[Rfam]
RNA sequence: ACGCCCCCCGUUGGAGAGAGUUGGUUCGCAUCCACGCAAGCUGCAACCAGCCACCGAAGGAGCAAAACCAAAUGUGUCAAAUGCACUUGCACGACGCAUUUGGUUGAAUCUCUCAGGUAAAGAGGACAACAGGGUCUCC
Numbered sequence: 001a002c003g004c005c006c007c008c009c010g011u012u013g014g015a016g017a018g019a020g021u022u023g024g025u026u027c028g029c030a031u032c033c034a035c036g037c038a039a040g041c042u043g044c045a046a047c048c049a050g051c052c053a054c055c056g057a058a059g060g061a062g063c064a065a066a067a068c069c070a071a072a073u074g075u076g077u078c079a080a081a082u083g084c085a086c087u088u089g090c091a092c093g094a095c096g097c098a099u100u101u102g103g104u105u106g107a108a109u110c111u112c113u114c115a116g117g118u119a120a121a122g123a124g125g126a127c128a129a130c131a132g133g134g135u136c137u138c139c
Base pairs, nucleotide, nucleotide: 006134007133008132010130011129012128013127020051021050022049023048024047025046026045053118054117055116056114057113060112061111062110066105067104068103069102070101071100072099073098074097075096076095077094078093
The family of this 139-nucleotide RNA from Lampropedia aestuarii is "Glycine riboswitch aptamer".
Gene Ontology term of the family: glycine biosynthetic process.
Lineage of the source: Bacteria > Pseudomonadota > Burkholderiales > Comamonadaceae > Lampropedia.
A search with the family's covariance model found it, with a score of 54 bits.